[Rfam]
RNA sequence: UCCGUCCGGGUCCGUGGUUGCACCGCCCGGGCACCCGAGUGGUCACCACUCGGCGCUGCUGGGCGGCUAGCCGAUGCCAGUCGCAGGCGAAACGGUCCACGUAACCGCGGGAGGUCCGGCCUCGUUGUCGGCCUCGUAGCGGGAUCACGGUGCGGCUUAGAGGUAAGUCCUGCCUCGUCCGCGUCAUCCGACAUGACGCGCGAAGGGAGAAGGGCAGUAGUGGCAGACAAGCUGCGAACCCCUCAGCAGGCGGUUGUGGGGACGAAGACCAGGUCGGCCGGGCGGA
Numbered sequence: 001u002c003c004g005u006c007c008g009g010g011u012c013c014g015u016g017g018u019u020g021c022a023c024c025g026c027c028c029g030g031g032c033a034c035c036c037g038a039g040u041g042g043u044c045a046c047c048a049c050u051c052g053g054c055g056c057u058g059c060u061g062g063g064c065g066g067c068u069a070g071c072c073g074a075u076g077c078c079a080g081u082c083g084c085a086g087g088c089g090a091a092a093c094g095g096u097c098c099a100c101g102u103a104a105c106c107g108c109g110g111g112a113g114g115u116c117c118g119g120c121c122u123c124g125u126u127g128u129c130g131g132c133c134u135c136g137u138a139g140c141g142g143g144a145u146c147a148c149g150g151u152g153c154g155g156c157u158u159a160g161a162g163g164u165a166a167g168u169c170c171u172g173c174c175u176c177g178u179c180c181g182c183g184u185c186a187u188c189c190g191a192c193a194u195g196a197c198g199c200g201c202g203a204a205g206g207g208a209g210a211a212g213g214g215c216a217g218u219a220g221u222g223g224c225a226g227a228c229a230a231g232c233u234g235c236g237a238a239c240c241c242c243u244c245a246g247c248a249g250g251c252g253g254u255u256g257u258g259g260g261g262a263c264g265a266a267g268a269c270c271a272g273g274u275c276g277g278c279c280g281g282g283c284g285g286a
Stems, first nucleotide, its partner, number of pairs: 001286009012277003015271005074257003077087001079157007096150002101145001105141001148264001169250005174207003178203001211243004220235002224231001